[Rfam]
RNA: Small nucleolar RNA SNORA81
RNA sequence: CCCUUCUGCAUUAAACGAAGUCUGCUAUAAUUGUGUGACUCAAAUUUUGUUUCAUACAAUAAUGCUAGCCGACUAUUGCGUGGAAGGAGAUUAAAAGUCACUGUACUGAAAAUGAGAUGUGGUCGAACCUCUUUCUUAAUGUUCAUUGGCCUCUGUCUCGAGGUGCAUUGCUACAACU
Numbered sequence: 001c002c003c004u005u006c007u008g009c010a011u012u013a014a015a016c017g018a019a020g021u022c023u024g025c026u027a028u029a030a031u032u033g034u035g036u037g038a039c040u041c042a043a044a045u046u047u048u049g050u051u052u053c054a055u056a057c058a059a060u061a062a063u064g065c066u067a068g069c070c071g072a073c074u075a076u077u078g079c080g081u082g083g084a085a086g087g088a089g090a091u092u093a094a095a096a097g098u099c100a101c102u103g104u105a106c107u108g109a110a111a112a113u114g115a116g117a118u119g120u121g122g123u124c125g126a127a128c129c130u131c132u133u134u135c136u137u138a139a140u141g142u143u144c145a146u147u148g149g150c151c152u153c154u155g156u157c158u159c160g161a162g163g164u165g166c167a168u169u170g171c172u173a174c175a176a177c178u
Stems, first nucleotide, its partner, number of pairs: 020073002024069004030063004036054002041049003096172002099170002102167004120149001122147001125144003